RNA sequence: GGUAAUAGUGGAUUAUUUAGAAUAAAAGCAUUGGACUCGGGGGCAGUACCCGACAUCUCCACGCAGUAUCUUAUAAGGGGGUGAAAUUAGUUUCGACAUGCUUAGUAAAAAAAUUAUCUUUACUCAGUGUAGAUACUGCUGAUUUUGUAGUUAUUUUAUUAGCUACAUGAUAUAAGUUCAAAAAAUGAAACGCAAAAUUUAAAAAUGAGCGUUAUGAGGUUUUAGCUGCUUAA
Numbered sequence: 001g002g003u004a005a006u007a008g009u010g011g012a013u014u015a016u017u018u019a020g021a022a023u024a025a026a027a028g029c030a031u032u033g034g035a036c037u038c039g040g041g042g043g044c045a046g047u048a049c050c051c052g053a054c055a056u057c058u059c060c061a062c063g064c065a066g067u068a069u070c071u072u073a074u075a076a077g078g079g080g081g082u083g084a085a086a087u088u089a090g091u092u093u094c095g096a097c098a099u100g101c102u103u104a105g106u107a108a109a110a111a112a113a114u115u116a117u118c119u120u121u122a123c124u125c126a127g128u129g130u131a132g133a134u135a136c137u138g139c140u141g142a143u144u145u146u147g148u149a150g151u152u153a154u155u156u157u158a159u160u161a162g163c164u165a166c167a168u169g170a171u172a173u174a175a176g177u178u179c180a181a182a183a184a185a186u187g188a189a190a191c192g193c194a195a196a197a198u199u200u201a202a203a204a205a206u207g208a209g210c211g212u213u214a215u216g217a218g219g220u221u222u223u224a225g226c227u228g229c230u231u232a233a
Base pairs, nucleotide, nucleotide: 001124002123003122004121005120015114016113017112018111027102028101029100032098033097037053038052039051040050041049054083055082056081057080058079059078060077125141126140127139128138
Dot-bracket structure: (((((.........((((........(((..((...(((((.......)))))(((((((................))))))).............)).)))........)))).....)))))((((.........))))............................................................................................